[Rfam]
RNA sequence: GGUGCCUUAGCUCAGUUGGUAGAGCAAUGGACUGAAAAUCCAUGUGUCCCUAGUUCGAUUCUUGGAGGCACCA
Numbered sequence: 001g002g003u004g005c006c007u008u009a010g011c012u013c014a015g016u017u018g019g020u021a022g023a024g025c026a027a028u029g030g031a032c033u034g035a036a037a038a039u040c041c042a043u044g045u046g047u048c049c050c051u052a053g054u055u056c057g058a059u060u061c062u063u064g065g066a067g068g069c070a071c072c073a
Stems, first nucleotide, its partner, number of pairs: 001072007010025004027043005049065002052062002
RNA: tRNA